[Rfam]
RNA sequence: GAUAAGUAAAAAUCGUCACUGGAUUAAGUGUGGGAGACAUGACACUCCUUACUUCUCCUAUUACGGGAUCAUAAAUUCCAUGCGAGUAACACCAAAAAACGAAUAAAAAAGCUCCUAGUCCCAGCAUAAUCAAAUGAUGACCAAGAAUAAAUCCUAGUUUAAUUGGAUCAUUCCA
Dot-bracket structure: ....................................................................................................................................((((((..((((..................))))))))))...
A member of the RNA family "Antisense RNA which regulates isiA expression" from Candidatus Atelocyanobacterium thalassae, 175 nucleotides long. Taxonomically the source falls in Candidatus Atelocyanobacterium thalassae (Bacteria, Bacillati, Chroococcales, Aphanothecaceae). The literature on the family includes a 2006 paper in Proc Natl Acad Sci U S A by Duhring et al., "An internal antisense RNA regulates expression of the photosynthesis gene isiA". It scores 93 bits against the family's covariance model. The base pairs follow the family's consensus structure, which was predicted with PFOLD.